[Rfam]
RNA sequence: CGCAACUCAACGGGGUGCCGGGCAAAUGCCGGGCUGAGACCAUACCCGCGGAACCUGAUCCGGAUUAUGCCGGCGAAGGGAUUGAGCACUCACCGGCU
Numbered sequence: 001c002g003c004a005a006c007u008c009a010a011c012g013g014g015g016u017g018c019c020g021g022g023c024a025a026a027u028g029c030c031g032g033g034c035u036g037a038g039a040c041c042a043u044a045c046c047c048g049c050g051g052a053a054c055c056u057g058a059u060c061c062g063g064a065u066u067a068u069g070c071c072g073g074c075g076a077a078g079g080g081a082u083u084g085a086g087c088a089c090u091c092a093c094c095g096g097c098u
Stems, first nucleotide, its partner, number of pairs: 006086005011048004016042001017034003021030001054079003060073004
Background: TPP riboswitch aptamer (THI element): a 98-nucleotide RNA from Marinobacter antarcticus. Rfam's curators write: Vitamin B(1) in its active form thiamin pyrophosphate (TPP) is an essential coenzyme that is synthesised by coupling of pyrimidine and thiazole moieties in bacteria. The organism belongs to Marinobacter, within Bacteria. A search with the family's covariance model found it, with a score of 69 bits.